[Rfam]
Shown here is a 91-nucleotide RNA from Albula goreensis, a member of the family "mir-7 microRNA precursor family".
RNA sequence: UGCCCAAGCUGCUGAAUGGAAGACUAGUGAUUUUGUUGUAGGACUACACAAAUGUGACAACAAAUCCCAGUCUGCCUUCCAGCAUGGGGCC
Dot-bracket structure: .((((....(.(((.(.((.(((((.(.(((((.(((((.................)))))))))).)))))).)).).))).)..)))).
The match comes from Rfam's covariance-model search (66 bits). The literature on the family includes a 2001 paper in Science by Lagos-Quintana et al., "Identification of novel genes coding for small expressed RNAs".